About this RNA: A member of the RNA family "hilD 3'UTR" from Salmonella bongori, 310 nucleotides long. The sequence is in the family's curated seed alignment. On this family, see Lopez-Garrido et al., Nucleic Acids Res 2014: "A eukaryotic-like 3' untranslated region in Salmonella enterica hilD mRNA". The family's RNA type in Rfam is cis-regulatory element.

RNA sequence: CAUUUUUCGUAUUUAUUACUCAAGAAAAUAUUUUUAUUAAAACUUUUUUUCAUUUAACAUUAUAAACGCUUAUUAAUACGCUAUAGUAGGAUGGGAGGCUAUUUAACAUUGUUGUUCUGUCCAAAAGACAGCCUGCAUUGAUAUCUCUGGCAAUUUACUGUAAGGCUGAUUAUGCAACGCGAUUUUUGUGAACUUGUCAUCGCUAUGAUGACGGGUAAACCAAUAUUACCUUAUUCACAGCGUGAGAAUCUGUCCAGAUGAAACUAUCUUCUUCCGGCUUUAGCCCUGUGGACUAAGCCGGCAUUUUAUU
Numbered sequence: 001c002a003u004u005u006u007u008c009g010u011a012u013u014u015a016u017u018a019c020u021c022a023a024g025a026a027a028a029u030a031u032u033u034u035u036a037u038u039a040a041a042a043c044u045u046u047u048u049u050u051c052a053u054u055u056a057a058c059a060u061u062a063u064a065a066a067c068g069c070u071u072a073u074u075a076a077u078a079c080g081c082u083a084u085a086g087u088a089g090g091a092u093g094g095g096a097g098g099c100u101a102u103u104u105a106a107c108a109u110u111g112u113u114g115u116u117c118u119g120u121c122c123a124a125a126a127g128a129c130a131g132c133c134u135g136c137a138u139u140g141a142u143a144u145c146u147c148u149g150g151c152a153a154u155u156u157a158c159u160g161u162a163a164g165g166c167u168g169a170u171u172a173u174g175c176a177a178c179g180c181g182a183u184u185u186u187u188g189u190g191a192a193c194u195u196g197u198c199a200u201c202g203c204u205a206u207g208a209u210g211a212c213g214g215g216u217a218a219a220c221c222a223a224u225a226u227u228a229c230c231u232u233a234u235u236c237a238c239a240g241c242g243u244g245a246g247a248a249u250c251u252g253u254c255c256a257g258a259u260g261a262a263a264c265u266a267u268c269u270u271c272u273u274c275c276g277g278c279u280u281u282a283g284c285c286c287u288g289u290g291g292a293c294u295a296a297g298c299c300g301g302c303a304u305u306u307u308a309u310u
Stems, first nucleotide, its partner, number of pairs: 009069002012065002020057001022055003031042004071080001084260002087257001089255006098151004106144001108142004113137003117131005160234006178190005192216003196212006241246001274301005280296004284291002